[Rfam]
RNA sequence: UGCGACUCCCAUGAAUGGUGUAGUCCCCCAGCCAGGAGAUACUUACCAUAUUCCGAUUCA
Numbered sequence: 001u002g003c004g005a006c007u008c009c010c011a012u013g014a015a016u017g018g019u020g021u022a023g024u025c026c027c028c029c030a031g032c033c034a035g036g037a038g039a040u041a042c043u044u045a046c047c048a049u050a051u052u053c054c055g056a057u058u059c060a
Stems, first nucleotide, its partner, number of pairs: 017044002020042003024038001026036002